[Rfam]
RNA: Histone 3' UTR stem-loop
RNA sequence: CGAACGGCUCUUUUCAGAGCCACCCACAUACUCAGAAAAGAGCUC
Numbered sequence: 001c002g003a004a005c006g007g008c009u010c011u012u013u014u015c016a017g018a019g020c021c022a023c024c025c026a027c028a029u030a031c032u033c034a035g036a037a038a039a040g041a042g043c044u045c
Stems, first nucleotide, its partner, number of pairs: 006021006